RNA sequence: UCUUAGGGCUUCUGUCGUGCGUGGCACGCGGGGGCCCCGCGGCCGCCCCCGCGGAAUCGACAUCAAGAGAUUUCGGAAGCACAAUUUUUGCGCUGGGGGUCGUCGGUAACCGCCUGUUCCGGCGCCACU
Number, nucleotide and partner (000 for none) at each position: 001u000002c000003u000004u000005a000006g000007g000008g080009c079010u078011u077012c076013u026014g025015u024016c023017g022018u000019g000020c000021g000022u017023g016024g015025c014026a013027c051028g050029c000030g048031g047032g046033g000034g044035c000036c042037c000038c000039g000040c000041g000042g036043c000044c034045g000046c032047c031048c030049c000050c028051g027052c075053g074054g073055a072056a071057u070058c069059g000060a000061c000062a000063u000064c000065a000066a000067g000068a000069g058070a057071u056072u055073u054074c053075g052076g012077a011078a010079g009080c008081a000082c000083a000084a000085u000086u000087u000088u000089u000090g000091c000092g000093c000094u000095g000096g000097g000098g126099g125100u124101c000102g123103u122104c121105g120106g119107u000108a118109a117110c116111c000112g000113c000114c000115u000116g110117u109118u108119c106120c105121g104122g103123c102124g100125c099126c098127a000128c000129u000
A member of the RNA family "U11 spliceosomal RNA" from Phoenicopterus ruber, 129 nucleotides long. Clan: U1 clan. It scores 79 bits against the family's covariance model. NCBI's taxonomy places the organism under Eukaryota, Gnathostomata, Euteleostomi, Neognathae, Phoenicopterus ruber. It is annotated as a spliceosomal small nuclear RNA.